[Rfam]
RNA sequence: AUGAGGUAGACCAUGGGUUCUCAUUGUAAUAGUGUAGAAUGUUGGUUAACUGUGGACUCCCUGGCUCUGUCUCAA
Numbered sequence: 001a002u003g004a005g006g007u008a009g010a011c012c013a014u015g016g017g018u019u020c021u022c023a024u025u026g027u028a029a030u031a032g033u034g035u036a037g038a039a040u041g042u043u044g045g046u047u048a049a050c051u052g053u054g055g056a057c058u059c060c061c062u063g064g065c066u067c068u069g070u071c072u073c074a075a
Stems, first nucleotide, its partner, number of pairs: 002074009011064003015060002017057004022052002024049003027044005
RNA: mir-591 microRNA precursor family